[Rfam]
Annotation
Rfam assigns this 114-nucleotide sequence from Castor canadensis to the family "Small nucleolar RNA SNORA32". The family has 9 seed sequences and 615 matches in Rfam 15.1. Gene Ontology terms of the family: RNA processing and nucleolus. ACA32 is a member of the H/ACA class of snoRNA that guide the sites of modification of uridines to pseudouridines. The family's consensus secondary structure was predicted with RNAfold.

RNA sequence: UGGUUAUUACCAAGGCUUUUAAAAUGUAGUUUCUCAUUUGUGUGGAUGUGACCAUAAAAAAUUUUCUAUGUUUUCUAUAUGCUACCUUGUUAGCAAUCAGUAUUGGGAACAGUA
Numbered sequence: 001u002g003g004u005u006a007u008u009a010c011c012a013a014g015g016c017u018u019u020u021a022a023a024a025u026g027u028a029g030u031u032u033c034u035c036a037u038u039u040g041u042g043u044g045g046a047u048g049u050g051a052c053c054a055u056a057a058a059a060a061a062u063u064u065u066c067u068a069u070g071u072u073u074u075c076u077a078u079a080u081g082c083u084a085c086c087u088u089g090u091u092a093g094c095a096a097u098c099a100g101u102a103u104u105g106g107g108a109a110c111a112g113u114a
Stems, first nucleotide, its partner, number of pairs: 003052005010045003027040003066107002069102004080095003